Annotation:
A member of the RNA family "ASpks TB sRNA" from Streptomyces sp. VN1, 75 nucleotides long. The organism belongs to Streptomyces, within Bacteria. Rfam classes the family as an antisense RNA. The family has 77 seed sequences and 9,052 matches in Rfam 15.1.
RNA sequence: CUUCAGGGAGCCCAGCCACAGCGGCUCGCCGUUCUUCUUCUUGCGUCCGUAGGUGGCCAGCAGGGCCUGCGCCUC
Numbered sequence: 001c002u003u004c005a006g007g008g009a010g011c012c013c014a015g016c017c018a019c020a021g022c023g024g025c026u027c028g029c030c031g032u033u034c035u036u037c038u039u040c041u042u043g044c045g046u047c048c049g050u051a052g053g054u055g056g057c058c059a060g061c062a063g064g065g066c067c068u069g070c071g072c073c074u075c
Stems, first nucleotide, its partner, number of pairs: 014026004032071001034069001036065002041060003047056003